[Rfam]
RNA: mir-71 microRNA precursor family
RNA sequence: UGUUGGUGAAAGACAUGGGUAGUGAGACGGUUUAUUUGGCACGUAUCACUAUUCUGUCCUUCGCCUACCG
Numbered sequence: 001u002g003u004u005g006g007u008g009a010a011a012g013a014c015a016u017g018g019g020u021a022g023u024g025a026g027a028c029g030g031u032u033u034a035u036u037u038g039g040c041a042c043g044u045a046u047c048a049c050u051a052u053u054c055u056g057u058c059c060u061u062c063g064c065c066u067a068c069c070g
Base pairs, nucleotide, nucleotide: 008062009061010060012058013057014056015055017054018053019052021050022049023048024047025046027044028043029042